[Rfam]
RNA: Plastid-rps12 3UTR RNA
Organism: Francoa sonchifolia
RNA sequence: GGUUUCCAUUGGUGCAAAUCCAAUCACCUCAAUUUUCAAUUUAAGAUGAGAAAAAAUUCCCCAUUGGUAGUAAAUUUAAUGGCUAGCCAUUAAGCGGGGAAAAGUCUAU
Numbered sequence: 001g002g003u004u005u006c007c008a009u010u011g012g013u014g015c016a017a018a019u020c021c022a023a024u025c026a027c028c029u030c031a032a033u034u035u036u037c038a039a040u041u042u043a044a045g046a047u048g049a050g051a052a053a054a055a056a057u058u059c060c061c062c063a064u065u066g067g068u069a070g071u072a073a074a075u076u077u078a079a080u081g082g083c084u085a086g087c088c089a090u091u092a093a094g095c096g097g098g099g100a101a102a103a104g105u106c107u108a109u
Stems, first nucleotide, its partner, number of pairs: 009023004059099004063090002066087001068085004